[Rfam]
RNA sequence: GCGCAAUCCGCUACACGGUCAGGCCGUAGCGCGGAGGGUUUUAUAACCCGCUAUUUCUCGAAAAACUCGAAGAAAGGUGAGCU
Numbered sequence: 001g002c003g004c005a006a007u008c009c010g011c012u013a014c015a016c017g018g019u020c021a022g023g024c025c026g027u028a029g030c031g032c033g034g035a036g037g038g039u040u041u042u043a044u045a046a047c048c049c050g051c052u053a054u055u056u057c058u059c060g061a062a063a064a065a066c067u068c069g070a071a072g073a074a075a076g077g078u079g080a081g082c083u
Stems, first nucleotide, its partner, number of pairs: 003082002007035005016026004037048004049079004056072001058070004
This 83-nucleotide RNA from Candidatus Vallotiella hemipterorum belongs to the Rfam family "SucA RNA motif". The organism belongs to Candidatus Vallotiella, within Bacteria. A reference for the family is Weinberg et al. (2007), "Identification of 22 candidate structured RNAs in bacteria using the CMfinder comparative genomics pipeline", Nucleic Acids Res. It scores 72 bits against the family's covariance model. Gene Ontology term of the family: regulation of translation.